[Rfam]
RNA: mir-5316 microRNA precursor family
Organism: Rhipicephalus microplus
RNA sequence: UUACCACUUGACGGCUCGCGAAAAUGUACUGGUUGGCAUUGAUUGAAUGAAUUGUCACCAGGGCCUUUUCGACGAGCUUUCCGUGGUUU
Numbered sequence: 001u002u003a004c005c006a007c008u009u010g011a012c013g014g015c016u017c018g019c020g021a022a023a024a025u026g027u028a029c030u031g032g033u034u035g036g037c038a039u040u041g042a043u044u045g046a047a048u049g050a051a052u053u054g055u056c057a058c059c060a061g062g063g064c065c066u067u068u069u070c071g072a073c074g075a076g077c078u079u080u081c082c083g084u085g086g087u088u089u
Stems, first nucleotide, its partner, number of pairs: 003087005013078006019071006026064002029061005035056004